This 96-nucleotide RNA from Rutstroemia sp. NJR-2017a WRK4 belongs to the Rfam family "tRNA". The base pairs follow the family's consensus structure, which is taken from published work. The family's RNA type in Rfam is transfer RNA.
RNA sequence: GUCAGCUUGCCAGAGUGGUUAAUGGGUAAGACUUGAAUGAAUUAAUUCGGUUAUCUUAUGGCUUCGGCCUCGUAGGUUCAAAUCCUGCAGCUGACG
Numbered sequence: 001g002u003c004a005g006c007u008u009g010c011c012a013g014a015g016u017g018g019u020u021a022a023u024g025g026g027u028a029a030g031a032c033u034u035g036a037a038u039g040a041a042u043u044a045a046u047u048c049g050g051u052u053a054u055c056u057u058a059u060g061g062c063u064u065c066g067g068c069c070u071c072g073u074a075g076g077u078u079c080a081a082a083u084c085c086u087g088c089a090g091c092u093g094a095c096g
Stems, first nucleotide, its partner, number of pairs: 001095007010025003027058005072088005